[Rfam]
The family of this 97-nucleotide RNA from alpha proteobacterium U9-1i is "Glycine riboswitch aptamer".

RNA sequence: AACACGCUGGAUAGAGCCGCAUGGCCUCGUUGAACACGAGGGAGGUGCGGCCGCCGAAGGAGUAAAUCUCUCAGGCGCCAGGGACAGCGGGGGCCGC
Numbered sequence: 001a002a003c004a005c006g007c008u009g010g011a012u013a014g015a016g017c018c019g020c021a022u023g024g025c026c027u028c029g030u031u032g033a034a035c036a037c038g039a040g041g042g043a044g045g046u047g048c049g050g051c052c053g054c055c056g057a058a059g060g061a062g063u064a065a066a067u068c069u070c071u072c073a074g075g076c077g078c079c080a081g082g083g084a085c086a087g088c089g090g091g092g093g094c095c096g097c
Stems, first nucleotide, its partner, number of pairs: 003091001005089005016051007053076003056072002060070003
Gene Ontology term of the family: glycine biosynthetic process.